[Rfam]
Nucleotides: 080
Base pairs, nucleotide, nucleotide: 001080002079003078004077005076006075007074008073009072010071011070012069013068014067015066016065017064018063023058025056026054027053028052029051030050031049032048
Number, partner (000 for none) and nucleotide at each position: 001080u002079u003078g004077g005076a006075u007074g008073a009072a010071a011070u012069u013068a014067a015066u016065g017064u018063g019000g020000a021000u022000c023058u024000c025056a026054u027053a028052c029051u030050u031049u032048a033000g034000a035000a036000a037000u038000g039000g040000a041000u042000c043000c044000c045000g046000c047000a048032u049031g050030a051029a052028g053027u054026g055000a056025u057000a058023g059000a060000g061000u062000c063018c064017a065016c066015a067014u068013u069012g070011a071010u072009u073008u074007c075006a076005u077004c078003c079002a080001a